IS605-orfB-I RNA: a 215-nucleotide sequence. Rfam's curators put it in the seed alignment. By type it is a small RNA. The base pairs follow the family's consensus structure, which is taken from published work.

[Rfam]
RNA sequence: GUCCUAUAAAGAUGUAUCAGCGCAAGCCAGCGGAGCAUCUCCCUGUAGGACGAAGUUUAUCAGAAGCUCUGACAACAAUUUUCAUUGUGUAGCUUCGGUUGAAAUGAGAUGAGUCAGAGUGGAAUAGGUUAACCGUAAGACCUUGGGUUGGAAAACUCUAAAAUUGACCUAGAGAUACGGAUUUAUUAAUUCUCGUAUUUUCUAGUUACGGUUUA
Numbered sequence: 001g002u003c004c005u006a007u008a009a010a011g012a013u014g015u016a017u018c019a020g021c022g023c024a025a026g027c028c029a030g031c032g033g034a035g036c037a038u039c040u041c042c043c044u045g046u047a048g049g050a051c052g053a054a055g056u057u058u059a060u061c062a063g064a065a066g067c068u069c070u071g072a073c074a075a076c077a078a079u080u081u082u083c084a085u086u087g088u089g090u091a092g093c094u095u096c097g098g099u100u101g102a103a104a105u106g107a108g109a110u111g112a113g114u115c116a117g118a119g120u121g122g123a124a125u126a127g128g129u130u131a132a133c134c135g136u137a138a139g140a141c142c143u144u145g146g147g148u149u150g151g152a153a154a155a156c157u158c159u160a161a162a163a164u165u166g167a168c169c170u171a172g173a174g175a176u177a178c179g180g181a182u183u184u185a186u187u188a189a190u191u192c193u194c195g196u197a198u199u200u201u202c203u204a205g206u207u208a209c210g211g212u213u214u215a
Stems, first nucleotide, its partner, number of pairs: 001051008010040006017034002020031002022028001066120008080109007091100002126143005132212006138164001145158005169205007176197004